[Rfam]
RNA: mir-10 microRNA precursor family
Nucleotides: 071
Stems, first nucleotide, its partner, number of pairs: 002069004011060001016056003020052010
Number, partner (000 for none) and nucleotide at each position: 001000c002069u003068a004067c005066a006000u007000c008000u009000a010000c011060c012000c013000u014000g015000u016056a017055g018054a019000u020052c021051c022050g023049a024048a025047u026046u027045u028044g029043u030000u031000u032000g033000c034000c035000a036000c037000g038000a039000g040000a041000c042000u043029a044028c045027a046026a047025a048024u049023u050022c051021g052020g053000u054018u055017c056016u057000a058000g059000a060011g061000a062000g063000g064000u065000u066005u067004g068003u069002g070000u071000g